[Rfam]
RNA sequence: GAUAAUGAUGAGAUACAUCUGGAAUCUCGUUCGUCUGAACUGCUGUUGAGAAAUGGAAUAUCUGACAUCA
Numbered sequence: 001g002a003u004a005a006u007g008a009u010g011a012g013a014u015a016c017a018u019c020u021g022g023a024a025u026c027u028c029g030u031u032c033g034u035c036u037g038a039a040c041u042g043c044u045g046u047u048g049a050g051a052a053a054u055g056g057a058a059u060a061u062c063u064g065a066c067a068u069c070a
Base pairs, nucleotide, nucleotide: 025051026050027049028048029047032045033044035042